RNA: MIR5387 microRNA precursor family
Organism: Triticum turgidum
RNA sequence: UGGUGCCACGACCCGGGACUAAUGCCCCUCUUUAGUCCCGGUUGGUGGCACCAAUCGGGACUAAAGGGGGGCAUUAGUCCCGGGUCGUGGCACGAA
Numbered sequence: 001u002g003g004u005g006c007c008a009c010g011a012c013c014c015g016g017g018a019c020u021a022a023u024g025c026c027c028c029u030c031u032u033u034a035g036u037c038c039c040g041g042u043u044g045g046u047g048g049c050a051c052c053a054a055u056c057g058g059g060a061c062u063a064a065a066g067g068g069g070g071g072c073a074u075u076a077g078u079c080c081c082g083g084g085u086c087g088u089g090g091c092a093c094g095a096a
Stems, first nucleotide, its partner, number of pairs: 003093025029067002034062003038058002045051002